[Rfam]
RNA: Plastid-ndhJ 3UTR RNA
RNA sequence: UGCCGAAUUAUGUACCGUGUACAUCGUUUAGAUGGGCUCCAGAAAGUCACAUAGUAC
Numbered sequence: 001u002g003c004c005g006a007a008u009u010a011u012g013u014a015c016c017g018u019g020u021a022c023a024u025c026g027u028u029u030a031g032a033u034g035g036g037c038u039c040c041a042g043a044a045a046g047u048c049a050c051a052u053a054g055u056a057c
Base pairs, nucleotide, nucleotide: 019037020036022034023033024032025031